[Rfam]
RNA: Archaeal small subunit ribosomal RNA, nucleotides 1 to 513
Organism: Chlamydomonas schloesseri
Nucleotides: 513
Base pairs, nucleotide, nucleotide: 004020005019006018007017008016022503023502024501025500027499028498029497030496031495032494034373035372036371037370038369039368040367041365042331047329048328049327051326052325053324056086057085058084061083062082066077067076068075069074093284094283095282102208103207104206105205106204107203108202111200112199116196117195118194119193120192121191122190124158125157126156127155133148134147136145137144138143164173165172181188209256210255211254216247217246218245221244222243223242224241226240227239228238229237259281260280261279262278263274264273265272266271286307287306288305289304290303309320310319311318312317337363339362340361341360345358346357347356348355349354376406377405378404379403411440412439413438414437415436416435447492448491449490450489451488459486460485461484462483468475469474
Number, partner (000 for none) and nucleotide at each position: 001000g002000g003000a004020g005019a006018g007017u008016u009000u010000g011000a012000u013000c014000c015000u016008g017007g018006c019005u020004c021000a022503g023502g024501a025500c026000g027499a028498a029497c030496g031495c032494u033000g034373g035372c036371g037370g038369c039368a040367u041365g042331c043000u044000u045000a046000a047329c048328a049327c050000a051326u052325g053324c054000a055000a056086g057085u058084c059000g060000a061083a062082c063000g064000a065000g066077c067076a068075a069074a070000g071000c072000a073000a074069u075068u076067u077066g078000u079000g080000u081000a082062g083061u084058g085057g086056c087000g088000a089000a090000c091000g092000g093284g094283u095282g096000c097000g098000u099000a100000a101000c102208g103207c104206g105205u106204a107203a108202g109000a110000a111200c112199c113000u114000a115000c116196c117195u118194a119193u120192c121191g122190g123000a124158g125157g126156g127155g128000g129000a130000u131000a132000a133148c134147a135000u136145u137144g138143g139000g140000a141000a142000a143138c144137u145136g146000u147134u148133g149000c150000u151000a152000a153000u154000a155127c156126c157125c158124c159000a160000u161000a162000c163000a164173g165172c166000u167000g168000a169000g170000g171000a172165g173164u174000g175000a176000a177000a178000g179000g180000u181188g182000a183000a184000a185000a186000a187000c188181c189000g190122c191121c192120g193119a194118u195117a196116g197000a198000g199112g200111g201000g202108c203107u204106u205105g206104c207103g208102u209256c210255u211254g212000a213000u214000u215000a216247g217246c218245u219000a220000g221244u222243u223242g224241g225000u226240g227239g228238g229237g230000g231000u232000a233000a234000c235000g236000g237229c238228c239227u240226c241224c242223c243222a244221a245218g246217g247216c248000c249000a250000c251000g252000a253000u254211c255210a256209g257000u258000a259281g260280c261279u262278g263274g264273u265272c266271u267000g268000a269000g270000a271266g272265g273264a274263u275000g276000a277000u278262c279261a280260g281259c282095c283094a284093c285000a286307c287306u288305g289304g290303g291000a292000c293000u294000g295000a296000g297000a298000c299000a300000c301000g302000g303290c304289c305288c306287a307286g308000a309320c310319u311318c312317c313000u314000a315000c316000g317312g318311g319310a320309g321000g322000c323000a324053g325052c326051a327049g328048u329047g330000a331042g332000g333000a334000a335000u336000u337363u338000u339362u340361c341360g342000c343000a344000a345358u346357g347356g348355g349354c350000g351000c352000a353000a354349g355348c356347c357346u358345g359000a360341c361340g362339a363337a364000g365041c366000a367040a368039u369038g370037c371036c372035g373034c374000g375000u376406g377405c378404a379403g380000g381000a382000a383000g384000a385000a386000g387000g388000c389000c390000u391000g392000u393000g394000g395000g396000u397000c398000g399000u400000a401000a402000a403379c404378u405377g406376c407000u408000u409000u410000u411440c412439u413438c414437a415436g416435a417000g418000a419000a420000g421000a422000a423000g424000u425000u426000c427000u428000g429000a430000c431000g432000g433000u434000a435416u436415c437414u438413g439412a440411g441000g442000a443000a444000u445000a446000a447492g448491c449490a450489c451488c452000g453000g454000c455000u456000a457000a458000c459486u460485c461484u462483g463000u464000g465000c466000c467000a468475g469474c470000a471000g472000c473000c474469g475468c476000g477000g478000u479000a480000a481000u482000a483462c484461a485460g486459a487000g488451g489450g490449u491448g492447c493000a494032a495031g496030c497029g498028u499027u500025g501024u502023c503022c504000g505000g506000a507000a508000u509000g510000a511000u512000u513000g